[Rfam]
RNA sequence: AGCAGGUGCAGAGCUUAUCCACUGCUGAACAGGGAGCUCAGGUUUGUUCACAGUGGCUAAGUUCUGCACAUGCA
Numbered sequence: 001a002g003c004a005g006g007u008g009c010a011g012a013g014c015u016u017a018u019c020c021a022c023u024g025c026u027g028a029a030c031a032g033g034g035a036g037c038u039c040a041g042g043u044u045u046g047u048u049c050a051c052a053g054u055g056g057c058u059a060a061g062u063u064c065u066g067c068a069c070a071u072g073c074a
Base pairs, nucleotide, nucleotide: 011064012063013062014061015060016059017058019056020055026050027049028048029047030046031045
RNA: mir-27 microRNA precursor family